[Rfam]
Overview:
Rfam assigns this 84-nucleotide sequence to the family "freshwater-2 RNA".
RNA sequence: AGAACUCAUGAGAGGACUUAUGGAGCACCCACUCCGUAGCGACUAGAACUCGCAUUGGACUUCUUUAAAAGGAGAAAACAAAUG
Dot-bracket structure: ((..((......))..))(((((((......)))))))((((.......))))...............................

It is annotated as a cis-regulatory element.